Shown here is a 105-nucleotide RNA from Bradyrhizobium ivorense, a member of the family "Glycine riboswitch aptamer". A search with the family's covariance model found it, with a score of 66 bits.
[Rfam]
RNA sequence: AUCGACGAUGCGGGAGAGAUCGACGCGAAUGCAUCACGCAUUCGCAUCGGCGCCGACGGAGCAACCGCCCCGGAAACUCUCAGGCAAAAGGACCGUAUCGUCAGG
Number, nucleotide and partner (000 for none) at each position: 001a000002u000003c000004g000005a000006c100007g099008a098009u097010g096011c095012g094013g093014g000015a000016g000017a000018g000019a000020u050021c049022g048023a047024c000025g000026c000027g000028a000029a000030u000031g000032c000033a000034u000035c000036a000037c000038g000039c000040a000041u000042u000043c000044g000045c000046a000047u023048c022049g021050g020051c000052g085053c084054c083055g081056a080057c000058g000059g079060a078061g077062c000063a000064a000065c073066c072067g000068c000069c000070c000071c000072g066073g065074a000075a000076a000077c061078u060079c059080u056081c055082a000083g054084g053085c052086a000087a000088a000089a000090g000091g000092a000093c013094c012095g011096u010097a009098u008099c007100g006101u000102c000103a000104g000105g000

The source organism's lineage runs through Bacteria, Pseudomonadati, Pseudomonadota, Hyphomicrobiales and Bradyrhizobium.